[Rfam]
RNA: U5 spliceosomal RNA
RNA sequence: UUACUCUGGUUUCUCUUCAAUUGUCGAAUAAAUCUUUCGCCUUUUACUAAAGAUUUCCGUGGAGAGGAACACUCUAAUGAGUCUAAACACAAUUUUUGCUUAGAGCCCCGAUGGCAUUUG
Numbered sequence: 001u002u003a004c005u006c007u008g009g010u011u012u013c014u015c016u017u018c019a020a021u022u023g024u025c026g027a028a029u030a031a032a033u034c035u036u037u038c039g040c041c042u043u044u045u046a047c048u049a050a051a052g053a054u055u056u057c058c059g060u061g062g063a064g065a066g067g068a069a070c071a072c073u074c075u076a077a078u079g080a081g082u083c084u085a086a087a088c089a090c091a092a093u094u095u096u097u098g099c100u101u102a103g104a105g106c107c108c109c110g111a112u113g114g115c116a117u118u119u120g
Stems, first nucleotide, its partner, number of pairs: 003082004009070011030056008100120001102118002105115002